[Rfam]
RNA: GRIK4 3 prime UTR element
Organism: Odobenus rosmarus
RNA sequence: CUAUCCUGGAGGCUAUCAGCACCCCGGAGAUCAGAGGUGGCCGGGCCAGUGGGGAGGAGGGGUGGGACAGGCACUGCAGACAGCAGCAGCUGGGACAUGAGCC
Number, nucleotide and partner (000 for none) at each position: 001c000002u000003a063004u062005c061006c060007u059008g000009g000010a000011g042012g041013c040014u039015a038016u037017c036018a000019g000020c000021a000022c000023c000024c000025c000026g000027g000028a000029g000030a000031u000032c000033a000034g000035a000036g017037g016038u015039g014040g013041c012042c011043g000044g000045g000046c000047c000048a000049g000050u000051g000052g000053g000054g000055a000056g000057g000058a000059g007060g006061g005062g004063u003064g000065g000066g000067a000068c000069a000070g000071g000072c000073a000074c000075u000076g000077c000078a000079g000080a000081c000082a000083g000084c000085a000086g000087c000088a000089g000090c000091u000092g000093g000094g000095a000096c000097a000098u000099g000100a000101g000102c000103c000